[Rfam]
Nucleotides: 083
Stems, first nucleotide, its partner, number of pairs: 030060005038051004
Number, partner (000 for none) and nucleotide at each position: 001000a002000a003000u004000c005000a006000g007000u008000g009000a010000c011000g012000a013000a014000a015000a016000a017000u018000a019000g020000c021000c022000a023000a024000a025000u026000a027000u028000g029000a030060g031059c032058a033057u034056u035000a036000a037000g038051a039050g040049a041048c042000c043000u044000u045000c046000u047000g048041g049040u050039c051038u052000a053000u054000g055000u056034g057033g058032u059031g060030c061000a062000u063000g064000a065000u066000c067000u068000g069000c070000a071000u072000g073000u074000g075000u076000a077000u078000c079000u080000g081000a082000g083000a
Shown here is an 83-nucleotide RNA from Vombatus ursinus, a member of the family "Small nucleolar RNA U2-19".
The family's RNA type in Rfam is C/D-box small nucleolar RNA.
The family's consensus secondary structure is taken from published work.
A reference for the family is Tycowski et al. (2004), "Guide RNAs with 5' Caps and Novel Box C/D snoRNA-like Domains for Modification of snRNAs in Metazoa", Curr Biol.
It scores 70 bits against the family's covariance model.